Shown here is a 131-nucleotide RNA sequence from Indicator maculatus, a member of the family "Small nucleolar RNA SNORA44". It is annotated as an H/ACA-box small nucleolar RNA. ACA44 is a member of the H/ACA class of snoRNA that guide the sites of modification of uridines to pseudouridines. Its family is annotated with RNA processing and nucleolus in the Gene Ontology. For this family Rfam cites "RNomics: an experimental approach that identifies 201 candidates for novel, small, non-messenger RNAs in mouse" (Huttenhofer et al., EMBO J, 2001). The family is grouped with related families in Rfam's "SNORA44 clan".
RNA sequence: GGGCAUGUUAAUCCAAGAGCUGUGGCUCUGUGCAGUAGCUCCAGCUCUCCAAUGACGUGCAAGAGCAACAGGAAGGUCUUUGACUGCUGGGCCUCUUCUGCCCAUUGCUGUCACUCGCCCCUCCUAUAUAU
Numbered sequence: 001g002g003g004c005a006u007g008u009u010a011a012u013c014c015a016a017g018a019g020c021u022g023u024g025g026c027u028c029u030g031u032g033c034a035g036u037a038g039c040u041c042c043a044g045c046u047c048u049c050c051a052a053u054g055a056c057g058u059g060c061a062a063g064a065g066c067a068a069c070a071g072g073a074a075g076g077u078c079u080u081u082g083a084c085u086g087c088u089g090g091g092c093c094u095c096u097u098c099u100g101c102c103c104a105u106u107g108c109u110g111u112c113a114c115u116c117g118c119c120c121c122u123c124c125u126a127u128a129u130a131u
Stems, first nucleotide, its partner, number of pairs: 013044001018040006071124003075120002086111002088104004